RNA: DUF3800-VII RNA
RNA sequence: AGUGAGUGAGUAGUUCGCCGAGUUACUGGAGGGGAUUGUGAUUACUUUCCCAGCAAGCGUUGACUUGUGGGUUCCUCUAGUCGGGGGAAAACUCACAUUUUU
Numbered sequence: 001a002g003u004g005a006g007u008g009a010g011u012a013g014u015u016c017g018c019c020g021a022g023u024u025a026c027u028g029g030a031g032g033g034g035a036u037u038g039u040g041a042u043u044a045c046u047u048u049c050c051c052a053g054c055a056a057g058c059g060u061u062g063a064c065u066u067g068u069g070g071g072u073u074c075c076u077c078u079a080g081u082c083g084g085g086g087g088a089a090a091a092c093u094c095a096c097a098u099u100u101u102u
Stems, first nucleotide, its partner, number of pairs: 002096006016085001018084004026080006032051004038045001054067004